[Rfam]
RNA sequence: GGAGGGUCGUCGCGACAGUAAUUGAACUUAGUACGAGAGGAACCGUUCAUUCAGAUAUUUGGUAUUUGCGUCUGUCCGAUCGGGCAGUGGCGCGAGGCUAUCAUCUGCUGGAUUAUGGCUGAACGCCUCUAAGUCAGAAUCCGUGCUAGAAACGACGAUGUUGGUCCCGCACGUAUAAGGAGCGUAGAAAUAGAGCUUUUGCUCGUGAACCGAACCAGGCGGGCUGGGGCGCCAGGGCGGAAAUGCCCGGGCGUCUUGUCUGCGGAUUGUAAUCAUCAUAUGCGCGGGGGUGAAUCCUUUGCAGACGACUUGAAUGGGAACGGGGUACUGUAAGCGGUAGAGUAGCCUUGUUGCUACGAUCCGCUGAGGUUAAGCCCUCGUUCUAUAGAUUUGU
Numbered sequence: 001g002g003a004g005g006g007u008c009g010u011c012g013c014g015a016c017a018g019u020a021a022u023u024g025a026a027c028u029u030a031g032u033a034c035g036a037g038a039g040g041a042a043c044c045g046u047u048c049a050u051u052c053a054g055a056u057a058u059u060u061g062g063u064a065u066u067u068g069c070g071u072c073u074g075u076c077c078g079a080u081c082g083g084g085c086a087g088u089g090g091c092g093c094g095a096g097g098c099u100a101u102c103a104u105c106u107g108c109u110g111g112a113u114u115a116u117g118g119c120u121g122a123a124c125g126c127c128u129c130u131a132a133g134u135c136a137g138a139a140u141c142c143g144u145g146c147u148a149g150a151a152a153c154g155a156c157g158a159u160g161u162u163g164g165u166c167c168c169g170c171a172c173g174u175a176u177a178a179g180g181a182g183c184g185u186a187g188a189a190a191u192a193g194a195g196c197u198u199u200u201g202c203u204c205g206u207g208a209a210c211c212g213a214a215c216c217a218g219g220c221g222g223g224c225u226g227g228g229g230c231g232c233c234a235g236g237g238c239g240g241a242a243a244u245g246c247c248c249g250g251g252c253g254u255c256u257u258g259u260c261u262g263c264g265g266a267u268u269g270u271a272a273u274c275a276u277c278a279u280a281u282g283c284g285c286g287g288g289g290g291u292g293a294a295u296c297c298u299u300u301g302c303a304g305a306c307g308a309c310u311u312g313a314a315u316g317g318g319a320a321c322g323g324g325g326u327a328c329u330g331u332a333a334g335c336g337g338u339a340g341a342g343u344a345g346c347c348u349u350g351u352u353g354c355u356a357c358g359a360u361c362c363g364c365u366g367a368g369g370u371u372a373a374g375c376c377c378u379c380g381u382u383c384u385a386u387a388g389a390u391u392u393g394u
Base pairs, nucleotide, nucleotide: 006159007158008157009156010155011154012153017147018146019145021051023049024048025047026046027045052107053106054105055104056103060100061099062098067094068093069092070091071090072087073086074085075084076083077082109143110142111141116136117135118134119133120132166288167287168286169285170284172282292392293391294390295389296388298312301309317384318383319382320381321380322379323377324376325375327370328369334364335363336362337361339360342357343356344355345354346353